[Rfam]
RNA sequence: UGAUGUCCCACACCCACCCCCGAAGAUCCCAGGUGGACGAGGGAAUAGUCAGAGGGAAC
Numbered sequence: 001u002g003a004u005g006u007c008c009c010a011c012a013c014c015c016a017c018c019c020c021c022g023a024a025g026a027u028c029c030c031a032g033g034u035g036g037a038c039g040a041g042g043g044a045a046u047a048g049u050c051a052g053a054g055g056g057a058a059c
Stems, first nucleotide, its partner, number of pairs: 006044004011039001014036005025059001027057004
RNA: Antizyme RNA frameshifting stimulation element
Organism: Phyllostomus discolor